[Rfam]
About this RNA: SAM-I/IV (S-adenosyl methionine) riboswitch aptamer: a 137-nucleotide RNA sequence. The family has 417 seed sequences and 567 matches in Rfam 15.1. Pairs were carried over by alignment from the consensus structure, which is taken from published work. Clan: SAM clan. It is one of the family's seed sequences. Its family is annotated with regulation of gene expression and S-adenosylmethionine metabolic process in the Gene Ontology.
RNA sequence: UUGCAGCAUCAAGAAGCCUUCGUAGCUGAAGGCGGCAACCGAGCCCACACCGGGCCGCGGUGCCACCCACAACGGGGAUGCGGCGCGACGAGCGCAAACACCAACGGUGCUCGUGGCGCAAACGGCUGGCGAAGGUC
Numbered sequence: 001u002u003g004c005a006g007c008a009u010c011a012a013g014a015a016g017c018c019u020u021c022g023u024a025g026c027u028g029a030a031g032g033c034g035g036c037a038a039c040c041g042a043g044c045c046c047a048c049a050c051c052g053g054g055c056c057g058c059g060g061u062g063c064c065a066c067c068c069a070c071a072a073c074g075g076g077g078a079u080g081c082g083g084c085g086c087g088a089c090g091a092g093c094g095c096a097a098a099c100a101c102c103a104a105c106g107g108u109g110c111u112c113g114u115g116g117c118g119c120a121a122a123c124g125g126c127u128g129g130c131g132a133a134g135g136u137c
Stems, first nucleotide, its partner, number of pairs: 006081005017032005034064003039060003043055002051129001083119004